[Rfam]
malK-I RNA: a 179-nucleotide sequence.
RNA sequence: UCGGGCGUCCGCGCGGCUCUCCACUUCUCAGCCGGGCGGCAUCAAAAAAAGGAGGAAGAAACACCCCCGGCUCGGGGUGCGGCAGUGUGGAGACCUGUCGUAAUGCGGCGCGUCCCUUUGCGGAGGCCCGCGAGGACAUACCAGGCGGAGGCCGUAUGUCCGGAGCCGAAAGAAUGGCA
Numbered sequence: 001u002c003g004g005g006c007g008u009c010c011g012c013g014c015g016g017c018u019c020u021c022c023a024c025u026u027c028u029c030a031g032c033c034g035g036g037c038g039g040c041a042u043c044a045a046a047a048a049a050a051g052g053a054g055g056a057a058g059a060a061a062c063a064c065c066c067c068c069g070g071c072u073c074g075g076g077g078u079g080c081g082g083c084a085g086u087g088u089g090g091a092g093a094c095c096u097g098u099c100g101u102a103a104u105g106c107g108g109c110g111c112g113u114c115c116c117u118u119u120g121c122g123g124a125g126g127c128c129c130g131c132g133a134g135g136a137c138a139u140a141c142c143a144g145g146c147g148g149a150g151g152c153c154g155u156a157u158g159u160c161c162g163g164a165g166c167c168g169a170a171a172g173a174a175u176g177g178c179a
Stems, first nucleotide, its partner, number of pairs: 009039004014034005064077004068168006078102008087094002105131004110127002113124001134161008144153003